[Rfam]
RNA sequence: UUUGGUGUGAUGAUUGUAAAAGUAAUUCCUCCUACUGAAAGCUAAAUGGCUUGAUAGACUCACAUUACACCCAUAGAAUAUGAACACCA
Numbered sequence: 001u002u003u004g005g006u007g008u009g010a011u012g013a014u015u016g017u018a019a020a021a022g023u024a025a026u027u028c029c030u031c032c033u034a035c036u037g038a039a040a041g042c043u044a045a046a047u048g049g050c051u052u053g054a055u056a057g058a059c060u061c062a063c064a065u066u067a068c069a070c071c072c073a074u075a076g077a078a079u080a081u082g083a084a085c086a087c088c089a
Stems, first nucleotide, its partner, number of pairs: 003089002006086002
The family of this 89-nucleotide RNA from Arabis nemorensis is "Small nucleolar RNA snoR8a".
The family has 7 seed sequences and 956 matches in Rfam 15.1.
The family's RNA type in Rfam is C/D-box small nucleolar RNA.
On this family, see Brown et al., RNA 2001: "Multiple snoRNA gene clusters from Arabidopsis".